A member of the RNA family "L31-Firmicutes ribosomal protein leader" from Lacticigenium naphthae, 34 nucleotides long. The literature on the family includes a 2020 paper in BMC Microbiol by Eckert and Weinberg, "Discovery of 20 novel ribosomal leader candidates in bacteria and archaea". Its Rfam clan is "Ribosomal Protein L31 Leader clan". The source organism's lineage runs through Bacteria, Bacillati, Bacilli, Lacticigenium and Lacticigenium naphthae. It is annotated as a cis-regulatory leader.
RNA sequence: CUCUGGUACAGCAAAUGGAUCAGGGCACAAGGAG
Numbered sequence: 001c002u003c004u005g006g007u008a009c010a011g012c013a014a015a016u017g018g019a020u021c022a023g024g025g026c027a028c029a030a031g032g033a034g
Base pairs, nucleotide, nucleotide: 001025002024003023004022005021009017010016